[Rfam]
RNA sequence: AACCGGAGUAGAAGCAGUCAGAUGUUUUUCAGAAGAAAUGCAUCAGGUCAUUGCUCCAUUU
Numbered sequence: 001a002a003c004c005g006g007a008g009u010a011g012a013a014g015c016a017g018u019c020a021g022a023u024g025u026u027u028u029u030c031a032g033a034a035g036a037a038a039u040g041c042a043u044c045a046g047g048u049c050a051u052u053g054c055u056c057c058a059u060u061u
Stems, first nucleotide, its partner, number of pairs: 005057006015046001019047001021044003024039006